[Rfam]
RNA: SAM riboswitch aptamer (S box leader)
RNA sequence: UUGUUAUCGAGAAAGGUGGAGGGAAUAGACCCUAUGAAACCUUAGCAACCCUUUAUCCCGUAAAGAAGGUGCUACAUUCUAUCCGUUAUAACGGUAUAGAUAACCA
Numbered sequence: 001u002u003g004u005u006a007u008c009g010a011g012a013a014a015g016g017u018g019g020a021g022g023g024a025a026u027a028g029a030c031c032c033u034a035u036g037a038a039a040c041c042u043u044a045g046c047a048a049c050c051c052u053u054u055a056u057c058c059c060g061u062a063a064a065g066a067a068g069g070u071g072c073u074a075c076a077u078u079c080u081a082u083c084c085g086u087u088a089u090a091a092c093g094g095u096a097u098a099g100a101u102a103a104c105c106a
Stems, first nucleotide, its partner, number of pairs: 001106001003104006013043005021032003026081004044073004049069002051065004077098001083094004